[Rfam]
RNA sequence: CCCGGUCUCCGGUAGUGGCCUCCGGGCGCCCCGGCAUCUCGCCGGUGGUCCCGGGCGCUUCGAUCGAAGACCGGC
Numbered sequence: 001c002c003c004g005g006u007c008u009c010c011g012g013u014a015g016u017g018g019c020c021u022c023c024g025g026g027c028g029c030c031c032c033g034g035c036a037u038c039u040c041g042c043c044g045g046u047g048g049u050c051c052c053g054g055g056c057g058c059u060u061c062g063a064u065c066g067a068a069g070a071c072c073g074g075c
Stems, first nucleotide, its partner, number of pairs: 002074006010066004017059003021055006028049003